Overview: SAM riboswitch aptamer (S box leader): a 108-nucleotide sequence from Clostridium polyendosporum. The SAM riboswitch is found upstream of a number of genes which code for proteins involved in methionine or cysteine biosynthesis in Gram-positive bacteria.
RNA sequence: AACUUAUCUAGAGUGGUGGAGGGACUGGCCCUGUGAAGCCCGGCAACCAGUAUUAUUUAUUUAAUACAAUGGUGCUAAUUCCUGCAGCUUUAUGCUGAUAGAUGAGAA
Numbered sequence: 001a002a003c004u005u006a007u008c009u010a011g012a013g014u015g016g017u018g019g020a021g022g023g024a025c026u027g028g029c030c031c032u033g034u035g036a037a038g039c040c041c042g043g044c045a046a047c048c049a050g051u052a053u054u055a056u057u058u059a060u061u062u063a064a065u066a067c068a069a070u071g072g073u074g075c076u077a078a079u080u081c082c083u084g085c086a087g088c089u090u091u092a093u094g095c096u097g098a099u100a101g102a103u104g105a106g107a108a
Base pairs, nucleotide, nucleotide: 003106004105005104006103007102008101013041015040016039017038021031022030023029025084027082028081042076043075044074045073047072048071050067051066052065053064054063080100085097086096087095088094